[Rfam]
RNA sequence: AGGACAGUAUCUUUAUAGAACUGUACCUUAGAUUUGAGUUUCACUAUAACAAAAAAAUCUGCCUUGAUCUUUGAAGACAGGGACGGAAGA
Numbered sequence: 001a002g003g004a005c006a007g008u009a010u011c012u013u014u015a016u017a018g019a020a021c022u023g024u025a026c027c028u029u030a031g032a033u034u035u036g037a038g039u040u041u042c043a044c045u046a047u048a049a050c051a052a053a054a055a056a057a058u059c060u061g062c063c064u065u066g067a068u069c070u071u072u073g074a075a076g077a078c079a080g081g082g083a084c085g086g087a088a089g090a
Stems, first nucleotide, its partner, number of pairs: 001028003004024005010019002059086003062082005068077003